[Rfam]
RNA sequence: GCAUUAUGAGGAUGAAUACGAAAUUAUUCCGAUCAAUUCAUGAAAGGAAUAUCAUACCUCCUACUCAUUCUGA
Numbered sequence: 001g002c003a004u005u006a007u008g009a010g011g012a013u014g015a016a017u018a019c020g021a022a023a024u025u026a027u028u029c030c031g032a033u034c035a036a037u038u039c040a041u042g043a044a045a046g047g048a049a050u051a052u053c054a055u056a057c058c059u060c061c062u063a064c065u066c067a068u069u070c071u072g073a
Stems, first nucleotide, its partner, number of pairs: 006068004027048002029042001
Rfam assigns this 73-nucleotide RNA sequence from Handroanthus impetiginosus to the family "Small nucleolar RNA Z105". Rfam 15.1 lists 621 matches to the family in 204 species. The family's consensus secondary structure was predicted with CMfinder. The match comes from Rfam's covariance-model search (46 bits).